[Rfam]
RNA: SAM/SAH riboswitch aptamer
RNA sequence: GAACCGUCACAACGGCUUCCUGGCGUGACGGGGAUAUAUCAACGGAGCA
Dot-bracket structure: ...(((((((..(([[[.[[))..)))))))............]]]]].